[Rfam]
RNA sequence: UAACUAUACUGCAUCUAACUUGUGAUGUCAGCUCAUUUUGAAUAGGGAUGUUACAUGUCACGAGACUGUUGUAAUCAUCUUGGUUCUCAUGUCUCAAGGUAAUUAGCAGGUACUAGUCAGUACCUGCUAAUUACUAUAUGUAUACUAGAAUAAUGUAG
Numbered sequence: 001u002a003a004c005u006a007u008a009c010u011g012c013a014u015c016u017a018a019c020u021u022g023u024g025a026u027g028u029c030a031g032c033u034c035a036u037u038u039u040g041a042a043u044a045g046g047g048a049u050g051u052u053a054c055a056u057g058u059c060a061c062g063a064g065a066c067u068g069u070u071g072u073a074a075u076c077a078u079c080u081u082g083g084u085u086c087u088c089a090u091g092u093c094u095c096a097a098g099g100u101a102a103u104u105a106g107c108a109g110g111u112a113c114u115a116g117u118c119a120g121u122a123c124c125u126g127c128u129a130a131u132u133a134c135u136a137u138a139u140g141u142a143u144a145c146u147a148g149a150a151u152a153a154u155g156u157a158g
Stems, first nucleotide, its partner, number of pairs: 008020001010018001023045001025043001028040001055143003062095005073085004098135017
RNA: Streptococcus sRNA sagA
Organism: Streptococcus iniae